[Rfam]
RNA: Small nucleolar RNA SNORA24
Organism: Nannospalax galili
RNA sequence: CUCCAUGUGUCUUUGGGACCUGUCGGCUGUGGCAGUCUCCCUUCCUAGCCAUGGAAGAGCAUAUUCAUUUAAUUGGUAUCAGAUUCUGACUUGUACAAGUAACAUUC
Numbered sequence: 001c002u003c004c005a006u007g008u009g010u011c012u013u014u015g016g017g018a019c020c021u022g023u024c025g026g027c028u029g030u031g032g033c034a035g036u037c038u039c040c041c042u043u044c045c046u047a048g049c050c051a052u053g054g055a056a057g058a059g060c061a062u063a064u065u066c067a068u069u070u071a072a073u074u075g076g077u078a079u080c081a082g083a084u085u086c087u088g089a090c091u092u093g094u095a096c097a098a099g100u101a102a103c104a105u106u107c
Base pairs, nucleotide, nucleotide: 002055003054004053005052006051007050015041016040017039018038020035021034022033023032024031068104069102070101073098074097075096076094077093078092